The family of this 63-nucleotide RNA sequence from Mycolicibacterium fortuitum is "Mycobacterium sRNA Ms_IGR-8". The family has 3 seed sequences and 26 matches in Rfam 15.1. On this family, see Li et al., RNA 2013: "Identification of small RNAs in Mycobacterium smegmatis using heterologous Hfq". It scores 60 bits against the family's covariance model. By type it is a small RNA. Pairs were carried over by alignment from the consensus structure.
[Rfam]
RNA sequence: CAGGACAAGGACCGCGAGUGUGAAGCUGUUGCGAGCGUGCGGGUCAGAUGUCGCAACAGCUUC
Numbered sequence: 001c002a003g004g005a006c007a008a009g010g011a012c013c014g015c016g017a018g019u020g021u022g023a024a025g026c027u028g029u030u031g032c033g034a035g036c037g038u039g040c041g042g043g044u045c046a047g048a049u050g051u052c053g054c055a056a057c058a059g060c061u062u063c
Stems, first nucleotide, its partner, number of pairs: 022063013035049001039045001